[Rfam]
RNA sequence: ACAAAAAUAAAAACACGCAGCAACCCAAUAAAAACAACACGUACCGGCUCUGACAUAACAAGAACAACACGGACAGAGGCGUAGCUAACAGAUUUUUUUGAAGUGGACAGCUUUUCUGAACAGCUUGCCUGGCAAGUCGUUCGCAGUCAGACAGAGAACAAUAAAACUGCCCCAAGGCAGCUCCCGUACUGACUGGAUCAACACGAUGAAAGUGGCCUCAGCGCUCAAAAAAAUACGUUUGCUCUUGAUCCAGCUUGUGGGUCGCUCAAAAAAGAUGUGAAGGGUCAGGUCACCAAAAACAACAACAGACCUCCCGACAAACAAAAAAGAGCAUAGAGAUACACCUUGAAGGGGAGCCCAGGCUCCCCUUCGUGCUUUCUGGCGUUUGCCUGGCGCCGAUGUC
Numbered sequence: 001a002c003a004a005a006a007a008u009a010a011a012a013a014c015a016c017g018c019a020g021c022a023a024c025c026c027a028a029u030a031a032a033a034a035c036a037a038c039a040c041g042u043a044c045c046g047g048c049u050c051u052g053a054c055a056u057a058a059c060a061a062g063a064a065c066a067a068c069a070c071g072g073a074c075a076g077a078g079g080c081g082u083a084g085c086u087a088a089c090a091g092a093u094u095u096u097u098u099u100g101a102a103g104u105g106g107a108c109a110g111c112u113u114u115u116c117u118g119a120a121c122a123g124c125u126u127g128c129c130u131g132g133c134a135a136g137u138c139g140u141u142c143g144c145a146g147u148c149a150g151a152c153a154g155a156g157a158a159c160a161a162u163a164a165a166a167c168u169g170c171c172c173c174a175a176g177g178c179a180g181c182u183c184c185c186g187u188a189c190u191g192a193c194u195g196g197a198u199c200a201a202c203a204c205g206a207u208g209a210a211a212g213u214g215g216c217c218u219c220a221g222c223g224c225u226c227a228a229a230a231a232a233a234u235a236c237g238u239u240u241g242c243u244c245u246u247g248a249u250c251c252a253g254c255u256u257g258u259g260g261g262u263c264g265c266u267c268a269a270a271a272a273a274g275a276u277g278u279g280a281a282g283g284g285u286c287a288g289g290u291c292a293c294c295a296a297a298a299a300c301a302a303c304a305a306c307a308g309a310c311c312u313c314c315c316g317a318c319a320a321a322c323a324a325a326a327a328a329g330a331g332c333a334u335a336g337a338g339a340u341a342c343a344c345c346u347u348g349a350a351g352g353g354g355a356g357c358c359c360a361g362g363c364u365c366c367c368c369u370u371c372g373u374g375c376u377u378u379c380u381g382g383c384g385u386u387u388g389c390c391u392g393g394c395g396c397c398g399a400u401g402u403c
Base pairs, nucleotide, nucleotide: 045081046080048078049077050076051075096230097229098228099227100226110222111221144195145194146193147192148191149190150189167180168179169178170177171176248262249261250260251259252258282385284383285382286381287380288311289310290309331375332374333373334372349370350369351368352367353366354365355364356363357362
RNA: Pseudomonas sRNA CrcZ
Organism: Pseudomonas coronafaciens